[Rfam]
RNA sequence: GAGUCUCAGGACGAAGUGGUUCGGUCAUGACCCAUAUUUAUUAUGGGCACCAGGCCGAGGAAAGUCCCCGGGCUGAAAUCCGUAGAAAUGCGGUCUCGGUAACGAGUUCUACUUCAAGCGUGGCGAUUACGGACUAUAAAUUAGUGCGUGGGCUGAGACAUGUGUGUGGAGCCUUUGGUUGCUGCCUGAAGUAUAUUAGCCGAUUUAUCACAGUAAUCCACUUGGUCCCUAAGUUGGACUAACUGAACGGGGAUUACGAUCCUGUGACU
Numbered sequence: 001g002a003g004u005c006u007c008a009g010g011a012c013g014a015a016g017u018g019g020u021u022c023g024g025u026c027a028u029g030a031c032c033c034a035u036a037u038u039u040a041u042u043a044u045g046g047g048c049a050c051c052a053g054g055c056c057g058a059g060g061a062a063a064g065u066c067c068c069c070g071g072g073c074u075g076a077a078a079u080c081c082g083u084a085g086a087a088a089u090g091c092g093g094u095c096u097c098g099g100u101a102a103c104g105a106g107u108u109c110u111a112c113u114u115c116a117a118g119c120g121u122g123g124c125g126a127u128u129a130c131g132g133a134c135u136a137u138a139a140a141u142u143a144g145u146g147c148g149u150g151g152g153c154u155g156a157g158a159c160a161u162g163u164g165u166g167u168g169g170a171g172c173c174u175u176u177g178g179u180u181g182c183u184g185c186c187u188g189a190a191g192u193a194u195a196u197u198a199g200c201c202g203a204u205u206u207a208u209c210a211c212a213g214u215a216a217u218c219c220a221c222u223u224g225g226u227c228c229c230u231a232a233g234u235u236g237g238a239c240u241a242a243c244u245g246a247a248c249g250g251g252g253a254u255u256a257c258g259a260u261c262c263u264g265u266g267a268c269u
Base pairs, nucleotide, nucleotide: 002269003268004267005266007264008263009262010261011260014223015222016221017220018219019218021058022057023056024055025054026053032046033045034044035043036042062255063254066252067251068250069249081092082091083090084089093108095106096105097104098103130188131187132186134184138180139179141177150174151173152172153171160167161166225239226238227237228236
RNA: RNase MRP